[Rfam]
RNA sequence: ACUAAAAAUGAAUAGUUCUCUCAUAUAAUAGCAGGGAUAUGGCCUGCGAGUUUCUACCGAACCCCGUAAAGGUUCGACUAUGAGUAGCGAUAUCAUGGUG
Numbered sequence: 001a002c003u004a005a006a007a008a009u010g011a012a013u014a015g016u017u018c019u020c021u022c023a024u025a026u027a028a029u030a031g032c033a034g035g036g037a038u039a040u041g042g043c044c045u046g047c048g049a050g051u052u053u054c055u056a057c058c059g060a061a062c063c064c065c066g067u068a069a070a071g072g073u074u075c076g077a078c079u080a081u082g083a084g085u086a087g088c089g090a091u092a093u094c095a096u097g098g099u100g
Base pairs, nucleotide, nucleotide: 020084021083022082023081024080025079029049031047032046033045034044035043058076059075060074061073062072063071